[Rfam]
RNA sequence: CAUCCAUCCCGAGCGGCCGAGAGACCUGGCUCCCUGACGCCGCAGCAACCACCCGAGAGGGCAGGUGCUACCGCCAGGAGCGAUGGAGG
Numbered sequence: 001c002a003u004c005c006a007u008c009c010c011g012a013g014c015g016g017c018c019g020a021g022a023g024a025c026c027u028g029g030c031u032c033c034c035u036g037a038c039g040c041c042g043c044a045g046c047a048a049c050c051a052c053c054c055g056a057g058a059g060g061g062c063a064g065g066u067g068c069u070a071c072c073g074c075c076a077g078g079a080g081c082g083a084u085g086g087a088g089g
Stems, first nucleotide, its partner, number of pairs: 001089001003087006013043005021032003026077004044069004049065002052061003073081001
RNA: SAM riboswitch aptamer (S box leader)
Organism: Kibdelosporangium aridum